[Rfam]
ACEA small nucleolar RNA U3: a 235-nucleotide RNA sequence from Coemansia thaxteri.
RNA sequence: UCGACUGUACUUUGAGGAUCAUUGUAUACAGUUAAUUUUCAGUUCUUUGUUCACCGAACAUAGACACACACUACAAGCUGGAAGAUGACACACAGUGCGCCGUCCGUAAAGGGAGGUGUCGGGCCGUCUGCUUGCCCGUCGAUGAUCUUGCUUGCUUGCGCCCUCGCAGUGGCCUUUCGGCUGCUGCGGGUUUAUGAGUGCAGCACAGCGAGGAUGGUCGCACAUUCUGACAGCC
Numbered sequence: 001u002c003g004a005c006u007g008u009a010c011u012u013u014g015a016g017g018a019u020c021a022u023u024g025u026a027u028a029c030a031g032u033u034a035a036u037u038u039u040c041a042g043u044u045c046u047u048u049g050u051u052c053a054c055c056g057a058a059c060a061u062a063g064a065c066a067c068a069c070a071c072u073a074c075a076a077g078c079u080g081g082a083a084g085a086u087g088a089c090a091c092a093c094a095g096u097g098c099g100c101c102g103u104c105c106g107u108a109a110a111g112g113g114a115g116g117u118g119u120c121g122g123g124c125c126g127u128c129u130g131c132u133u134g135c136c137c138g139u140c141g142a143u144g145a146u147c148u149u150g151c152u153u154g155c156u157u158g159c160g161c162c163c164u165c166g167c168a169g170u171g172g173c174c175u176u177u178c179g180g181c182u183g184c185u186g187c188g189g190g191u192u193u194a195u196g197a198g199u200g201c202a203g204c205a206c207a208g209c210g211a212g213g214a215u216g217g218u219c220g221c222a223c224a225u226u227c228u229g230a231c232a233g234c235c
Stems, first nucleotide, its partner, number of pairs: 003038001006034001009032003015025001017023002044064003048060005077234004095223005100217006109149004120138005
Small nucleolar RNAs (snoRNAs) are involved in the processing and modification of rRNA in the nucleolus. There are two main classes of snoRNAs: the box C/D class, and the box H/ACA class. U3 snoRNA is a member of the box C/D class.